[Rfam]
RNA sequence: UGUAGACAAUAAGGAUUCUCUCAUAUAAUUCCUGUGAUACGGACGGGAAGUUUCUACGAGGCGGCCAUUAACUGCCUGGCUAUGGGUGUUUUCAGCAUACGG
Numbered sequence: 001u002g003u004a005g006a007c008a009a010u011a012a013g014g015a016u017u018c019u020c021u022c023a024u025a026u027a028a029u030u031c032c033u034g035u036g037a038u039a040c041g042g043a044c045g046g047g048a049a050g051u052u053u054c055u056a057c058g059a060g061g062c063g064g065c066c067a068u069u070a071a072c073u074g075c076c077u078g079g080c081u082a083u084g085g086g087u088g089u090u091u092u093c094a095g096c097a098u099a100c101g102g
Stems, first nucleotide, its partner, number of pairs: 018088001020086006029049007059077006